This 393-nucleotide sequence from Pontibacter qinzhouensis belongs to the Rfam family "Bacterial RNase P class A". The organism belongs to Pontibacter, within Bacteria. It scores 277 bits against the family's covariance model. Rfam's curators write: Ribonuclease P (RNase P) is a ubiquitous endoribonuclease, found in archaea, bacteria and eukarya as well as chloroplasts and mitochondria.

[Rfam]
RNA sequence: ACGGCAAGCCAUCUUAUCGCUGCUCCUUCGGGAGGAGAGGAAAGUCCGGGCAACGCAGAGCAUCCUACUUCCUAACGGGAAGGGGCCUUUCCGGCGACAGAAAGGCUACAGCUAGUGCCACAGAAAAUAACCGCCUCUUGCAAGAGAGGUAAGGGUGAAAAGGUGCGGUAAGAGCGCACCAGUGGGCGGGCGACCGUUCCAGCUGGGUAAACCUUAGGAGUUGAAAGACCAAAUAGGCUGGCAGCGUCUUGUUUCGGCAAGGCUAAGGGCUGCUCGUCCGAUGUCAGUGGGUAGGUCGAUGGAGCCUGCGCGCGAGUGCAGGCCUAGAUAAAUGAUAAGACUUUGGGAGUAACAUCCUGAUGACAGAACCCGGCUUAUCGGCUUGCCGUUAUU
Number, nucleotide and partner (000 for none) at each position: 001a389002c388003g387004g386005c385006a384007a383008g382009c381010c380011a378012u340013c339014u338015u337016a336017u335018c334019g000020c037021u036022g000023c034024u033025c032026c031027u000028u000029c000030g000031g026032g025033a024034g023035g000036a021037g020038a000039g000040g000041a000042a376043a375044g374045u000046c373047c372048g371049g370050g369051c223052a222053a221054c220055g000056c000057a000058g275059a274060g273061c272062a000063u219064c218065c217066u216067a215068c082069u081070u080071c079072c078073u000074a000075a000076c000077g000078g072079g071080a070081a069082g068083g109084g107085g106086c105087c104088u103089u102090u101091c100092c000093g000094g000095c000096g000097a000098c000099a000100g091101a090102a089103a088104g087105g086106c085107u084108a000109c083110a214111g213112c000113u000114a000115g212116u211117g208118c207119c206120a000121c000122a000123g000124a000125a000126a000127a000128u000129a000130a000131c154132c153133g150134c149135c148136u147137c146138u145139u144140g000141c000142a000143a000144g139145a138146g137147a136148g135149g134150u133151a000152a000153g132154g131155g000156u000157g000158a000159a000160a000161a000162g180163g179164u178165g177166c176167g175168g000169u000170a000171a000172g000173a000174g000175c167176g166177c165178a164179c163180c162181a000182g203183u201184g200185g199186g197187c196188g195189g194190g000191c000192g000193a000194c189195c188196g187197u186198u000199c185200c184201a183202g000203c182204u000205g000206g119207g118208u117209a000210a000211a116212c115213c111214u110215u067216a066217g065218g064219a063220g054221u053222u052223g051224a000225a000226a000227g297228a296229c295230c294231a000232a000233a000234u000235a000236g000237g288238c287239u286240g285241g284242c283243a000244g000245c000246g000247u000248c000249u000250u000251g000252u000253u000254u000255c000256g000257g000258c000259a000260a000261g000262g000263c000264u000265a000266a000267g279268g278269g277270c276271u000272g061273c060274u059275c058276g270277u269278c268279c267280g000281a000282u000283g242284u241285c240286a239287g238288u237289g000290g000291g000292u000293a000294g230295g229296u228297c227298g000299a000300u000301g000302g000303a000304g323305c322306c321307u320308g319309c318310g317311c316312g000313c000314g000315a000316g311317u310318g309319c308320a307321g306322g305323c304324c000325u000326a000327g000328a000329u000330a000331a000332a000333u000334g018335a017336u016337a015338a014339g013340a012341c000342u000343u000344u000345g000346g000347g000348a000349g000350u000351a000352a000353c000354a000355u000356c000357c000358u000359g000360a000361u000362g000363a000364c000365a000366g000367a000368a000369c050370c049371c048372g047373g046374c044375u043376u042377a000378u011379c000380g010381g009382c008383u007384u006385g005386c004387c003388g002389u001390u000391a000392u000393u000